[Rfam]
RNA sequence: AAUAUUAUAGGAUAGAAAUAGUAGCUAUCACCCAUAGUUAGGAGAUAUUGGAGUACUGACCAAUAUAAUAUU
Dot-bracket structure: ((((((((..(((((...[[[[[.))))).(..........)....(((((..]]]]].)))))))))))))
The record is a 72-nucleotide sequence, which matches "skipping-rope RNA" in Rfam. The family's RNA type in Rfam is small RNA. Rfam's curators put it in the seed alignment.